The record is a 121-nucleotide RNA from Streptomyces xanthii, which matches "Streptomyces-metH RNA" in Rfam. Taxonomically the source falls in Streptomyces (Bacteria, Bacillati, Actinomycetota, Kitasatosporales). It is annotated as a small RNA.
[Rfam]
RNA sequence: CCGUUCCGGCCUGUGGACGCCUGGGCGCCAUCACGGGGGUCCCGGCUACCCUGACCGGGUGCGCUUCCAGCAGUGGAUGCGCAAAGCCGACAGCCGUCGCACCCCAGGGAGCACUUUCAUG
Numbered sequence: 001c002c003g004u005u006c007c008g009g010c011c012u013g014u015g016g017a018c019g020c021c022u023g024g025g026c027g028c029c030a031u032c033a034c035g036g037g038g039g040u041c042c043c044g045g046c047u048a049c050c051c052u053g054a055c056c057g058g059g060u061g062c063g064c065u066u067c068c069a070g071c072a073g074u075g076g077a078u079g080c081g082c083a084a085a086g087c088c089g090a091c092a093g094c095c096g097u098c099g100c101a102c103c104c105c106a107g108g109g110a111g112c113a114c115u116u117u118c119a120u121g
Stems, first nucleotide, its partner, number of pairs: 060083004066077003086100002089098003